Rfam assigns this 74-nucleotide RNA from Acipenser ruthenus to the family "Small nucleolar RNA SNORD99". The literature on the family includes a 2002 paper in Mol Cell Biol by Galardi et al., "Purified box C/D snoRNPs are able to reproduce site-specific 2'-O-methylation of target RNA in vitro". NCBI's taxonomy places the organism under Eukaryota, Metazoa, Acipenseriformes, Acipenserini, Acipenser. Pairs were carried over by alignment from the consensus structure, which was predicted with RNAalifold. The match comes from Rfam's covariance-model search (64 bits). It is annotated as a C/D-box small nucleolar RNA.
Nucleotides: 074
Base pairs, nucleotide, nucleotide: 001073002072003071004070005069
Number, partner (000 for none) and nucleotide at each position: 001073g002072c003071u004070g005069g006000u007000c008000a009000g010000u011000g012000a013000u014000g015000a016000g017000u018000u019000u020000a021000a022000a023000u024000u025000g026000u027000a028000a029000c030000u031000u032000g033000g034000a035000c036000u037000g038000c039000u040000g041000g042000a043000u044000g045000a046000g047000a048000u049000u050000u051000g052000c053000g054000g055000a056000u057000a058000u059000g060000g061000g062000a063000c064000u065000g066000a067000g068000a069005u070004c071003g072002g073001c074000u